mir-1175 microRNA precursor family: a 72-nucleotide sequence from Capitella teleta.
Lineage of the source: Eukaryota > Spiralia > Lophotrochozoa > Capitellidae > Capitella.
The family has 11 seed sequences and 181 matches in Rfam 15.1.
The base pairs follow the family's consensus structure, which was predicted with RNAalifold.

[Rfam]
RNA sequence: UGAGAUUAGUGGAGAGAGUUUUAUCUCAUCGAGCUUGAUUUGGGUGAGAUUCAACUCCUCCAACUGCUCUCA
Number, nucleotide and partner (000 for none) at each position: 001u000002g000003a000004g000005a000006u000007u066008a065009g064010u062011g061012g060013a059014g058015a000016g057017a056018g000019u000020u000021u000022u000023a000024u048025c000026u047027c046028a045029u044030c043031g000032a000033g000034c000035u000036u000037g000038a000039u000040u000041u000042g000043g030044g029045u028046g027047a026048g024049a000050u000051u000052c000053a000054a000055c000056u017057c016058c014059u013060c012061c011062a010063a000064c009065u008066g007067c000068u000069c000070u000071c000072a000